[Rfam]
RNA sequence: ACAUGUUUGAUUCGUCGCAUGCCAGGUAAAUGGUUUUUAUAGUAUUGGGGAAACCGGAUGAAAAAUCCGGGUGGCGAAGC
Numbered sequence: 001a002c003a004u005g006u007u008u009g010a011u012u013c014g015u016c017g018c019a020u021g022c023c024a025g026g027u028a029a030a031u032g033g034u035u036u037u038u039a040u041a042g043u044a045u046u047g048g049g050g051a052a053a054c055c056g057g058a059u060g061a062a063a064a065a066u067c068c069g070g071g072u073g074g075c076g077a078a079g080c
Base pairs, nucleotide, nucleotide: 002021003020004019005018006017054070055069056068057067058066059065
RNA: RAGATH-28 RNA
Organism: Desulfofarcimen acetoxidans